[Rfam]
RNA sequence: AUUCACAUUCGGACGCGGAUGCAUAAUAAUACGGCCCCGGUCUGCCUGACGGGAAUCCUGGAGAAUUCAUGUAC
Numbered sequence: 001a002u003u004c005a006c007a008u009u010c011g012g013a014c015g016c017g018g019a020u021g022c023a024u025a026a027u028a029a030u031a032c033g034g035c036c037c038c039g040g041u042c043u044g045c046c047u048g049a050c051g052g053g054a055a056u057c058c059u060g061g062a063g064a065a066u067u068c069a070u071g072u073a074c
Base pairs, nucleotide, nucleotide: 036053037052038051039050041048
Dot-bracket structure: ...................................((((.(......).)))).....................
A member of the RNA family "PyrD leader" from Jejuibacter calystegiae, 74 nucleotides long.
Its family is annotated with regulation of gene expression in the Gene Ontology.
NCBI's taxonomy places the organism under Bacteria, Gammaproteobacteria, Enterobacterales, Enterobacteriaceae, Jejuibacter.
A search with the family's covariance model found it, with a score of 61 bits.
Pairs were carried over by alignment from the consensus structure, which is taken from published work.
On this family, see Sorensen, Nucleic Acids Res 1994: "Conformational heterogeneity in the Salmonella typhimurium pyrC and pyrD leader mRNAs produced in vivo".